Rfam assigns this 134-nucleotide sequence from Pseudactinobacillus ducreyi to the family "FMN riboswitch aptamer (RFN element)". From the family's description: The RFN element is a highly conserved domain that is found frequently in the 5'-untranslated regions of prokaryotic mRNAs that encode for flavin mononucleotide (FMN) biosynthesis and transport proteins. NCBI's taxonomy places the organism under Bacteria, Pseudomonadota, Pasteurellaceae, Pseudactinobacillus, Pseudactinobacillus ducreyi.
Nucleotides: 134
Stems, first nucleotide, its partner, number of pairs: 003132001006129005017029003031114002033104002035048004043102002053078001084100005106117003
Number, partner (000 for none) and nucleotide at each position: 001000u002000u003132u004000a005000a006129u007128c008127u009126u010125c011000a012000g013000g014000g015000c016000a017029g018028g019027g020000u021000g022000a023000a024000a025000u026000u027019c028018c029017c030000g031114a032113u033104c034103g035048g036047u037046g038045g039000u040000a041000a042000a043102g044101u045038c046037c047036g048035c049000g050000a051000g052000c053078c054000g055000a056000a057000c058000u059000u060000c061000g062000a063000u064000u065000a066000a067000c068000a069000u070000c071000a072000a073000g074000u075000u076000u077000a078053g079000c080000a081000g082000g083000a084100a085099c086098u087097a088096g089000u090000g091000a092000a093000a094000u095000u096088c097087u098086a099085g100084u101044a102043c103034c104033g105000a106117c107116a108115g109000u110000a111000u112000a113032g114031u115108c116107u117106g118000g119000a120000u121000g122000g123000a124000a125010g126009a127008a128007g129006a130000g131000c132003a133000g134000a